Rfam assigns this 137-nucleotide RNA from Nonomuraea jiangxiensis to the family "c-di-AMP riboswitch aptamer (ydaO/yuaA leader)". It scores 63 bits against the family's covariance model. NCBI's taxonomy places the organism under Bacteria, Bacillati, Actinomycetota, Streptosporangiaceae, Nonomuraea.
[Rfam]
RNA sequence: AGCCGUUGCACGCCUAAUCCCGGGCGUGUUGCCCGGGAGCCGGGGACCCAUCGCACCAGCGGGUGAAUCCACUUGGGUGGUAGGCGCCUCCCACGCCCGAACCCGCAGCUAACCCGGCAGGCAGAGGGAGAGGAAAA
Numbered sequence: 001a002g003c004c005g006u007u008g009c010a011c012g013c014c015u016a017a018u019c020c021c022g023g024g025c026g027u028g029u030u031g032c033c034c035g036g037g038a039g040c041c042g043g044g045g046a047c048c049c050a051u052c053g054c055a056c057c058a059g060c061g062g063g064u065g066a067a068u069c070c071a072c073u074u075g076g077g078u079g080g081u082a083g084g085c086g087c088c089u090c091c092c093a094c095g096c097c098c099g100a101a102c103c104c105g106c107a108g109c110u111a112a113c114c115c116g117g118c119a120g121g122c123a124g125a126g127g128g129a130g131a132g133g134a135a136a137a
Base pairs, nucleotide, nucleotide: 012122013121014120018038019037020036021035022034023033024032025031026030039118040117041116042115043114044113049059061104062103063102069080070079071078072077083098084097